[Rfam]
RNA sequence: UGUCGGUCCCCCCGCGACGAUAGUCCGUAAACUCCGCCAGGUCCGGAAGGAAGCAACGGUAGCGGACGAUUCGGGUGCCGGGGUGUGGCUGGCAGGG
Numbered sequence: 001u002g003u004c005g006g007u008c009c010c011c012c013c014g015c016g017a018c019g020a021u022a023g024u025c026c027g028u029a030a031a032c033u034c035c036g037c038c039a040g041g042u043c044c045g046g047a048a049g050g051a052a053g054c055a056a057c058g059g060u061a062g063c064g065g066a067c068g069a070u071u072c073g074g075g076u077g078c079c080g081g082g083g084u085g086u087g088g089c090u091g092g093c094a095g096g097g
Stems, first nucleotide, its partner, number of pairs: 004091005010083005015075001018073003023067006034059003042051003
Background
The record is a 97-nucleotide RNA sequence from Luteibacter sp. UNCMF366Tsu5.1, which matches "Bacterial small signal recognition particle RNA" in Rfam. The signal recognition particle (SRP) is a universally conserved ribonucleoprotein involved in the co-translational targeting of proteins to membranes. Its family is annotated with signal recognition particle, plasma membrane targeting and SRP-dependent cotranslational protein targeting to membrane, signal sequence recognition in the Gene Ontology. By type it is a non-coding RNA gene. The source organism's lineage runs through Bacteria, Pseudomonadati, Pseudomonadota, Lysobacterales and Luteibacter.